[Rfam]
RNA sequence: GGACGAUGACGAGGAAAUCUUGGUCUCGUUCGUCAUAAGCGCGAUUUACUUCGCCUUGAUGACCAUUCUAUAUAUCACCACCCAUAAGCCGAGUCC
Dot-bracket structure: ((((......................................((...........))...................................))))